[Rfam]
Nucleotides: 089
Base pairs, nucleotide, nucleotide: 004026005025006024007023008022009021028047029046030045032043033042034041053082054081055080056079057078058077059076060075
Number, partner (000 for none) and nucleotide at each position: 001000c002000c003000u004026c005025c006024c007023g008022c009021u010000u011000c012000u013000c014000c015000u016000c017000c018000c019000u020000g021009a022008g023007c024006g025005g026004g027000a028047g029046c030045c031000c032043g033042g034041c035000c036000u037000c038000c039000a040000g041034g042033c043032c044000a045030g046029g047028c048000a049000u050000u051000c052000a053082g054081c055080c056079c057078u058077g059076a060075g061000u062000c063000g064000c065000a066000c067000c068000c069000c070000u071000g072000u073000c074000g075060c076059u077058c078057a079056g080055g081054g082053c083000u084000u085000u086000u087000c088000u089000u
Background:
The family of this 89-nucleotide sequence from Microvirgula aerodenitrificans is "Burkholderia RNA 7 (anti-hemB)". It is annotated as a small RNA. It scores 60 bits against the family's covariance model. From the family's description: This RNA motif was identified by computational search in b-proteobacteria Burkholderia. Co-purified with Hfq, expression confirmed by Northern blot.